A member of the RNA family "FMN riboswitch aptamer (RFN element)" from Brevibacterium linens, 129 nucleotides long. A search with the family's covariance model found it, with a score of 105 bits. The family's consensus secondary structure is taken from published work.

Nucleotides: 129
Base pairs, nucleotide, nucleotide: 003127004126005125006124007123008122009121010120016028017027018026030109031108032098033097034048035047036046037045043096044095052073053072078094079093080092081091082090100112101111102110
Number, partner (000 for none) and nucleotide at each position: 001000c002000a003127c004126a005125u006124g007123u008122u009121c010120c011000g012000g013000g014000g015000a016028c017027g018026g019000u020000g021000a022000a023000a024000u025000u026018c027017c028016g029000u030109a031108c032098c033097g034048g035047c036046g037045g038000u039000u040000a041000c042000a043096g044095u045037c046036c047035g048034c049000g050000a051000c052073c053072c054000g055000c056000u057000c058000g059000c060000a061000u062000u063000c064000g065000u066000g067000c068000a069000g070000g071000c072053g073052g074000u075000u076000g077000a078094u079093u080092c081091g082090g083000u084000g085000a086000a087000a088000u089000u090082c091081c092080g093079a094078a095044a096043c097033c098032g099000a100112c101111a102110g103000u104000c105000a106000g107000a108031g109030u110102c111101u112100g113000g114000a115000u116000g117000g118000g119000a120010g121009g122008a123007g124006c125005a126004u127003g128000g129000u